[Rfam]
RNA: Glutamine-II riboswitch aptamer
Nucleotides: 065
Stems, first nucleotide, its partner, number of pairs: 004055005010029007040065004045060001046058002
Number, partner (000 for none) and nucleotide at each position: 001000a002000g003000a004055c005054g006053u007052u008051c009000a010029u011028c012027u013026u014025g015024c016023c017000a018000g019000c020000c021000u022000c023016g024015g025014c026013a027012a028011g029010g030000c031000g032000c033000a034000g035000u036000u037000c038000g039000a040065c041064u042063c043062a044000g045060g046058c047057c048000a049000u050000g051008g052007a053006a054005c055004g056000g057047g058046g059000a060045c061000g062043u063042g064041a065040g